[Rfam]
RNA sequence: CCUGCCACUGGCGUUGCAGAGAUGGCUGCUGUGGCAUCUUUGUGUCAAUGAGUGGCAAGAGAGACCCAGGCUAUAUUCUACGCUCGUUUGUUCUGCACCCCGUGAGCACUCAGAGUGAUUGAUAGCCUGACAUU
Numbered sequence: 001c002c003u004g005c006c007a008c009u010g011g012c013g014u015u016g017c018a019g020a021g022a023u024g025g026c027u028g029c030u031g032u033g034g035c036a037u038c039u040u041u042g043u044g045u046c047a048a049u050g051a052g053u054g055g056c057a058a059g060a061g062a063g064a065c066c067c068a069g070g071c072u073a074u075a076u077u078c079u080a081c082g083c084u085c086g087u088u089u090g091u092u093c094u095g096c097a098c099c100c101c102g103u104g105a106g107c108a109c110u111c112a113g114a115g116u117g118a119u120u121g122a123u124a125g126c127c128u129g130a131c132a133u134u
Stems, first nucleotide, its partner, number of pairs: 002059001003057004007049001010046003016043004021038004026033001067129008081117002084114002087112001089108005